[Rfam]
Background
Shown here is a 91-nucleotide sequence from Sorghum bicolor, a member of the family "MIR5387 microRNA precursor family".

RNA sequence: UUGUAACACGAACUGGUGUUAAAGGGUCCUGCCCAAUGGCUGACAGGUGCUGUCGGGGCAGGGACCCUUUAGCACCGGUUCGUGUUACAGA
Dot-bracket structure: ..(((((((((((((((((((((((((.((.(((.((..((...)).....)).)))...)).)))))))))))))))))))))))))...
The family has 2 seed sequences and 1,029 matches in Rfam 15.1. The family's consensus secondary structure was predicted with RNAalifold. It scores 83 bits against the family's covariance model.